[Rfam]
RNA sequence: AGACGGUGCCUUUCAGGCAUCCUCUCCUAAAACUUUACGGGCCGGUCUUUGCGAAGACCGGCCCUUUUUUUGUGAUCGU
Numbered sequence: 001a002g003a004c005g006g007u008g009c010c011u012u013u014c015a016g017g018c019a020u021c022c023u024c025u026c027c028u029a030a031a032a033c034u035u036u037a038c039g040g041g042c043c044g045g046u047c048u049u050u051g052c053g054a055a056g057a058c059c060g061g062c063c064c065u066u067u068u069u070u071u072g073u074g075a076u077c078g079u
Base pairs, nucleotide, nucleotide: 008018009017010016011015039064040063041062042061043060044059045058046057047056
Rfam assigns this 79-nucleotide RNA sequence from Sphingobium sp. RAC03 to the family "Makes More Granules Regulator RNA (mmgR)". Rfam links the family to the GO terms protein binding, DNA-templated transcription, termination and response to nitrogen compound.